[Rfam]
RNA sequence: AAGCGUGCUCCGGGGUCGGUGGAAGUCCGAACCGGCGGUGACAGUCCGCGAGCCGGUCGCAGCCAGCGGCCGGUCGACCCGGUGCAAUUCCGGGACCGACGGUGAGAGUCCGGAUGGGAGGCAGCGCGC
Numbered sequence: 001a002a003g004c005g006u007g008c009u010c011c012g013g014g015g016u017c018g019g020u021g022g023a024a025g026u027c028c029g030a031a032c033c034g035g036c037g038g039u040g041a042c043a044g045u046c047c048g049c050g051a052g053c054c055g056g057u058c059g060c061a062g063c064c065a066g067c068g069g070c071c072g073g074u075c076g077a078c079c080c081g082g083u084g085c086a087a088u089u090c091c092g093g094g095a096c097c098g099a100c101g102g103u104g105a106g107a108g109u110c111c112g113g114a115u116g117g118g119a120g121g122c123a124g125c126g127c128g129c
Stems, first nucleotide, its partner, number of pairs: 003127004009121002017029003031109002033098002035049004044096002052074003078094005100112003
RNA: FMN riboswitch aptamer (RFN element)